Rfam assigns this 145-nucleotide sequence to the family "RT-16 RNA". Rfam classes the family as a small RNA. The family's consensus secondary structure is taken from published work.
[Rfam]
RNA sequence: CCUAACCAUAUGGUUAGGCCACACGUCAGUUUAUUACGACUUUAUUUAGAUUUAUUUUAAGUCAUAAAAUACAGAAAAUUCUUACGAGAAUUUUCAGUGAACAGAAUCUAGGAGAUUCUGCGAAUUGAUAAAUUGGCUACAACGU
Numbered sequence: 001c002c003u004a005a006c007c008a009u010a011u012g013g014u015u016a017g018g019c020c021a022c023a024c025g026u027c028a029g030u031u032u033a034u035u036a037c038g039a040c041u042u043u044a045u046u047u048a049g050a051u052u053u054a055u056u057u058u059a060a061g062u063c064a065u066a067a068a069a070u071a072c073a074g075a076a077a078a079u080u081c082u083u084a085c086g087a088g089a090a091u092u093u094u095c096a097g098u099g100a101a102c103a104g105a106a107u108c109u110a111g112g113a114g115a116u117u118c119u120g121c122g123a124a125u126u127g128a129u130a131a132a133u134u135g136g137c138u139a140c141a142a143c144g145u
Stems, first nucleotide, its partner, number of pairs: 001018007025137010039107001041105003045101003074095005081088002